Shown here is a 35-nucleotide RNA sequence from Chrysochloris asiatica, a member of the family "Iron response element I". On this family, see Hentze et al., Science 1987: "Identification of the iron-responsive element for the translational regulation of human ferritin mRNA". Its family is annotated with response to iron ion in the Gene Ontology. Rfam 15.1 lists 6,829 matches to the family in 599 species. The organism belongs to Chrysochloris, within Eukaryota. Pairs were carried over by alignment from the consensus structure, which is taken from published work.
RNA sequence: AGGUCUCCUGCUUCAACAGUGCUUGAACGGAACUG
Dot-bracket structure: ((.(.(((.(.((((((...).)))))))))))).